Shown here is a 108-nucleotide sequence from Suricata suricatta, a member of the family "Small nucleolar RNA SNORD90". It scores 112 bits against the family's covariance model. From the family's description: snoRNA HBII-295 belongs to the family of C/D snoRNAs. It is the human orthologue of the mouse MBII-295 and has no identified RNA target. The organism belongs to Suricata, within Eukaryota. Rfam 15.1 lists 545 matches to the family in 524 species. A reference for the family is Huttenhofer et al. (2001), "RNomics: an experimental approach that identifies 201 candidates for novel, small, non-messenger RNAs in mouse", EMBO J.
RNA sequence: GCUUAUGUUUUCUAAGUGUCUAAUGAUGAAAUUCAUAGGGCAGAUUCUGAGGUGAAAAUUUCAUUCAUCAUUGAUACUCCUAUGGAAUCUGAAGACACUUGACAGCCU
Numbered sequence: 001g002c003u004u005a006u007g008u009u010u011u012c013u014a015a016g017u018g019u020c021u022a023a024u025g026a027u028g029a030a031a032u033u034c035a036u037a038g039g040g041c042a043g044a045u046u047c048u049g050a051g052g053u054g055a056a057a058a059u060u061u062c063a064u065u066c067a068u069c070a071u072u073g074a075u076a077c078u079c080c081u082a083u084g085g086a087a088u089c090u091g092a093a094g095a096c097a098c099u100u101g102a103c104a105g106c107c108u
Stems, first nucleotide, its partner, number of pairs: 013101009030088001032086009043075001046074002049071001051069006